[Rfam]
RNA sequence: GGCUUUCUUCGCGGCGGAGCUCGACCGCCCACACCACAGGUAGUGGCCUACAUCGACGCCCACAAGGGCGAGUACGGGGUCGAGCCGAUCUGCAAGGUUCUGCAGGUCGCCCCG
Numbered sequence: 001g002g003c004u005u006u007c008u009u010c011g012c013g014g015c016g017g018a019g020c021u022c023g024a025c026c027g028c029c030c031a032c033a034c035c036a037c038a039g040g041u042a043g044u045g046g047c048c049u050a051c052a053u054c055g056a057c058g059c060c061c062a063c064a065a066g067g068g069c070g071a072g073u074a075c076g077g078g079g080u081c082g083a084g085c086c087g088a089u090c091u092g093c094a095a096g097g098u099u100c101u102g103c104a105g106g107u108c109g110c111c112c113c114g
Base pairs, nucleotide, nucleotide: 013029014028015027016026017025075114076113077112078111079110086109087108089106090105091104092103093102094101
The family of this 114-nucleotide sequence is "ALIL pseudoknot". On this family, see Mazauric et al., J Biol Chem 2008: "Apical loop-internal loop RNA pseudoknots: a new type of stimulator of -1 translational frameshifting in bacteria". The match comes from Rfam's covariance-model search (88 bits).